[Rfam]
6S-Flavo RNA: a 123-nucleotide sequence from Sinomicrobium weinanense. The base pairs follow the family's consensus structure, which is taken from published work. It scores 94 bits against the family's covariance model.
RNA sequence: ACUCAACGCUAUUCAAUUAAAAAGGGUGAGUCUCGAUUGUAAAAGCAUGCCGUUCCCGGCCUUUGGCCGGAGAUAACGGAUCCUUGAGCAGUUGGUUAGCCCUAAACUUGUCUUUUGGAGUUU
Numbered sequence: 001a002c003u004c005a006a007c008g009c010u011a012u013u014c015a016a017u018u019a020a021a022a023a024g025g026g027u028g029a030g031u032c033u034c035g036a037u038u039g040u041a042a043a044a045g046c047a048u049g050c051c052g053u054u055c056c057c058g059g060c061c062u063u064u065g066g067c068c069g070g071a072g073a074u075a076a077c078g079g080a081u082c083c084u085u086g087a088g089c090a091g092u093u094g095g096u097u098a099g100c101c102c103u104a105a106a107c108u109u110g111u112c113u114u115u116u117g118g119a120g121u122u123u
Stems, first nucleotide, its partner, number of pairs: 023103005034094005043085003050079004
Taxonomically the source falls in Sinomicrobium (Bacteria, Pseudomonadati, Bacteroidota, Flavobacteriales).